mir-10 microRNA precursor family: a 70-nucleotide sequence from Scleropages formosus. A reference for the family is Lee and Ambros (2001), "An extensive class of small RNAs in Caenorhabditis elegans", Science. Taxonomically the source falls in Scleropages (Eukaryota, Craniata, Actinopterygii, Osteoglossomorpha).
RNA sequence: CACCACAAACCCGUAGAUCCGAACUUGUGGUGACAGACAACACAAGCUCGCAUCUAUAGGCCUGUGGGAC
Numbered sequence: 001c002a003c004c005a006c007a008a009a010c011c012c013g014u015a016g017a018u019c020c021g022a023a024c025u026u027g028u029g030g031u032g033a034c035a036g037a038c039a040a041c042a043c044a045a046g047c048u049c050g051c052a053u054c055u056a057u058a059g060g061c062c063u064g065u066g067g068g069a070c
Stems, first nucleotide, its partner, number of pairs: 003067005010060002015055004020050003024046006